This 129-nucleotide RNA sequence from Certhia brachydactyla belongs to the Rfam family "Small nucleolar RNA SNORA9". Rfam's curators write: ACA9 is a member of the H/ACA class of snoRNA that guide the sites of modification of uridines to pseudouridines. It is annotated as an H/ACA-box small nucleolar RNA. Taxonomically the source falls in Certhia (Eukaryota, Metazoa, Bilateria, Craniata).
[Rfam]
RNA sequence: CCGCAGUCUCCAGCAUGGCGCUGCCUGCCGUGGCUCCUGCCAUUCCUGUAGCGCUGCCAGAACAUGCCGGGGUUGUUUGAGGCCGCUCCCGGUGCUUCCCGAGGGCGGUUAUAGAAUCCCCGCACAUUC
Numbered sequence: 001c002c003g004c005a006g007u008c009u010c011c012a013g014c015a016u017g018g019c020g021c022u023g024c025c026u027g028c029c030g031u032g033g034c035u036c037c038u039g040c041c042a043u044u045c046c047u048g049u050a051g052c053g054c055u056g057c058c059a060g061a062a063c064a065u066g067c068c069g070g071g072g073u074u075g076u077u078u079g080a081g082g083c084c085g086c087u088c089c090c091g092g093u094g095c096u097u098c099c100c101g102a103g104g105g106c107g108g109u110u111a112u113a114g115a116a117u118c119c120c121c122g123c124a125c126a127u128u129c
Stems, first nucleotide, its partner, number of pairs: 003057005016042003023034003068122005083108006090101003